This 312-nucleotide RNA sequence from Thomasclavelia cocleata belongs to the Rfam family "Bacterial RNase P class B". Clan: RNaseP clan. Pairs were carried over by alignment from the consensus structure, which is taken from published work. Gene Ontology terms of the family: tRNA processing, ribonuclease P activity and dimeric ribonuclease P complex. The family's RNA type in Rfam is ribozyme. The match comes from Rfam's covariance-model search (227 bits). NCBI's taxonomy places the organism under Bacteria, Bacillota, Erysipelotrichia, Coprobacillaceae, Thomasclavelia. From the family's description: Ribonuclease P (RNase P) is a ubiquitous endoribonuclease, found in archaea, bacteria and eukarya as well as chloroplasts and mitochondria. Its best characterised activity is the generation of mature 5'-ends of tRNAs by cleaving the 5'-leader elements of precursor-tRNAs. Cellular RNase Ps are ribonucleoproteins. For this family Rfam cites "Ribonuclease P: unity and diversity in a tRNA processing ribozyme" (Frank and Pace, Annu Rev Biochem, 1998).
RNA sequence: AAAGCGAUUGCUACAAAAGUAGAGGAAAGUCCAGGCUUCCACAAGCUGCGAUGCUUGUAGUGUUUGUACAUGGCGAAUUAAUAAGUCAUGGUAGCGUGAGCUAACGACAGGCCUAAGACCUAAACAUAAGUAUGGUUGAUAAGCUAUAAAGUGCCACAGAAACUAUUCUAAUCGAAAGAUUAGCUGAAAAGAGGUAAACUCUGCAAGGAAGAAACCCAAAUUUGGUAGGGGAAUCAUCUUGAAGGAAUUGAACUGAAAGAUGGAUGCAUAUGCAUAGAUAAAUAAUCGUUUGAAAAACAGAACUUGGCUUAC
Numbered sequence: 001a002a003a004g005c006g007a008u009u010g011c012u013a014c015a016a017a018a019g020u021a022g023a024g025g026a027a028a029g030u031c032c033a034g035g036c037u038u039c040c041a042c043a044a045g046c047u048g049c050g051a052u053g054c055u056u057g058u059a060g061u062g063u064u065u066g067u068a069c070a071u072g073g074c075g076a077a078u079u080a081a082u083a084a085g086u087c088a089u090g091g092u093a094g095c096g097u098g099a100g101c102u103a104a105c106g107a108c109a110g111g112c113c114u115a116a117g118a119c120c121u122a123a124a125c126a127u128a129a130g131u132a133u134g135g136u137u138g139a140u141a142a143g144c145u146a147u148a149a150a151g152u153g154c155c156a157c158a159g160a161a162a163c164u165a166u167u168c169u170a171a172u173c174g175a176a177a178g179a180u181u182a183g184c185u186g187a188a189a190a191g192a193g194g195u196a197a198a199c200u201c202u203g204c205a206a207g208g209a210a211g212a213a214a215c216c217c218a219a220a221u222u223u224g225g226u227a228g229g230g231g232a233a234u235c236a237u238c239u240u241g242a243a244g245g246a247a248u249u250g251a252a253c254u255g256a257a258a259g260a261u262g263g264a265u266g267c268a269u270a271u272g273c274a275u276a277g278a279u280a281a282a283u284a285a286u287c288g289u290u291u292g293a294a295a296a297a298c299a300g301a302a303c304u305u306g307g308c309u310u311a312c
Stems, first nucleotide, its partner, number of pairs: 003290007011022004027310003031307005036211005041058006064206005069090006091105001092103004106201002110145003117137004124131002151199002153195003168183006215230003234263007264275004